[Rfam]
This 379-nucleotide RNA sequence from Caulobacter mirabilis belongs to the Rfam family "Bacterial RNase P class A". Gene Ontology terms of the family: ribonuclease P activity, dimeric ribonuclease P complex and tRNA processing. The family's RNA type in Rfam is ribozyme.

RNA sequence: UCAGACGGCCGGGCGGUCGCGGCGCCUCGGCGUCGAGGAAAGUCCGGGCUCCACGGUGACAAGGCGGCGGGUAACGCCCGCCCGGGGUGACCCGAGGGAUAGCGCCACAGAAAGCAAACCUCCUCCGCCGCGGCGGCGGGAAGGGUGAAAGGGUGGGGUAAGAGCCCACCGCGGACCUGGUGACAGGGACGGCAUGGCAAGCCCCGCCUGGAGCAAGACCGAAUAGGGAUUCCGCGCCUCCCUUGCGGAGGUAGGGCCGUCUCCGGCCCGAGGAAUCCGGGUUGGUCGCGAGAACCGUCCAGCAAUGGGCGGUCCAGAGGAAUGAUCGUCGCGGGCCUUCGGGCCCGAACAGAACCCGGCUUACAGGCCGUCUGAUCCG
Numbered sequence: 001u002c003a004g005a006c007g008g009c010c011g012g013g014c015g016g017u018c019g020c021g022g023c024g025c026c027u028c029g030g031c032g033u034c035g036a037g038g039a040a041a042g043u044c045c046g047g048g049c050u051c052c053a054c055g056g057u058g059a060c061a062a063g064g065c066g067g068c069g070g071g072u073a074a075c076g077c078c079c080g081c082c083c084g085g086g087g088u089g090a091c092c093c094g095a096g097g098g099a100u101a102g103c104g105c106c107a108c109a110g111a112a113a114g115c116a117a118a119c120c121u122c123c124u125c126c127g128c129c130g131c132g133g134c135g136g137c138g139g140g141a142a143g144g145g146u147g148a149a150a151g152g153g154u155g156g157g158g159u160a161a162g163a164g165c166c167c168a169c170c171g172c173g174g175a176c177c178u179g180g181u182g183a184c185a186g187g188g189a190c191g192g193c194a195u196g197g198c199a200a201g202c203c204c205c206g207c208c209u210g211g212a213g214c215a216a217g218a219c220c221g222a223a224u225a226g227g228g229a230u231u232c233c234g235c236g237c238c239u240c241c242c243u244u245g246c247g248g249a250g251g252u253a254g255g256g257c258c259g260u261c262u263c264c265g266g267c268c269c270g271a272g273g274a275a276u277c278c279g280g281g282u283u284g285g286u287c288g289c290g291a292g293a294a295c296c297g298u299c300c301a302g303c304a305a306u307g308g309g310c311g312g313u314c315c316a317g318a319g320g321a322a323u324g325a326u327c328g329u330c331g332c333g334g335g336c337c338u339u340c341g342g343g344c345c346c347g348a349a350c351a352g353a354a355c356c357c358g359g360c361u362u363a364c365a366g367g368c369c370g371u372c373u374g375a376u377c378c379g
Stems, first nucleotide, its partner, number of pairs: 001375010011364001012330007020035006040362003044359005049213004058262001062209005067081005082096001083094004097204002102202002104198003119144002121140003125136004152170006171193001172191002176187004217287004227278006254269005294313008